[Rfam]
Shown here is a 151-nucleotide RNA sequence from Modestobacter muralis, a member of the family "c-di-AMP riboswitch aptamer (ydaO/yuaA leader)". Rfam's curators write: This family represents a conserved RNA structure found upstream of the ydaO and yuaA genes in Bacillus subtilis and related genes in other bacteria.
RNA sequence: CGCCGGAUGCCGCCGAGUCGCUGUUCGCAGCGAGCCGGGGACCCACCGAACCACUGGGGUGAAUCUCGCGCCGGGCCGCAGCCCGGCGCGCGUAGGGCGCCUUCCCGCCCGAAUCCGUCAGCUGACCCGGUAGGCGGCCGCGGAAGACCAA
Numbered sequence: 001c002g003c004c005g006g007a008u009g010c011c012g013c014c015g016a017g018u019c020g021c022u023g024u025u026c027g028c029a030g031c032g033a034g035c036c037g038g039g040g041a042c043c044c045a046c047c048g049a050a051c052c053a054c055u056g057g058g059g060u061g062a063a064u065c066u067c068g069c070g071c072c073g074g075g076c077c078g079c080a081g082c083c084c085g086g087c088g089c090g091c092g093u094a095g096g097g098c099g100c101c102u103u104c105c106c107g108c109c110c111g112a113a114u115c116c117g118u119c120a121g122c123u124g125a126c127c128c129g130g131u132a133g134g135c136g137g138c139c140g141c142g143g144a145a146g147a148c149c150a151a
Base pairs, nucleotide, nucleotide: 011136012135013134014133018033019032020031021030022029034131035130036129037128038127039126044056045055057116058115059114065092067090068089069088070087071086072085073084074083075082076081095110096109097108098107